Rfam assigns this 154-nucleotide RNA from Eubacteriaceae bacterium CHKCI004 to the family "Clostridiales-1 RNA". A search with the family's covariance model found it, with a score of 119 bits.

RNA sequence: UAACACCAGGCUCCAGAAAGUCGGGCUUUCACGCUAGCGUGAAGAAGCAUGGCUUUGGGAGCCGCCACCACAUGAGCAUGGAGCACGAUAGUGUGGGAAUGCGAAUGUGGGAAGGAUUGCGGGAGCGCAGUGCGCGGAGCAAUCCGUGGUGUUA
Numbered sequence: 001u002a003a004c005a006c007c008a009g010g011c012u013c014c015a016g017a018a019a020g021u022c023g024g025g026c027u028u029u030c031a032c033g034c035u036a037g038c039g040u041g042a043a044g045a046a047g048c049a050u051g052g053c054u055u056u057g058g059g060a061g062c063c064g065c066c067a068c069c070a071c072a073u074g075a076g077c078a079u080g081g082a083g084c085a086c087g088a089u090a091g092u093g094u095g096g097g098a099a100u101g102c103g104a105a106u107g108u109g110g111g112a113a114g115g116a117u118u119g120c121g122g123g124a125g126c127g128c129a130g131u132g133c134g135c136g137g138a139g140c141a142a143u144c145c146g147u148g149g150u151g152u153u154a
Stems, first nucleotide, its partner, number of pairs: 001154007010062004017056007025048004029042005068110006076102004083094004114145007125135004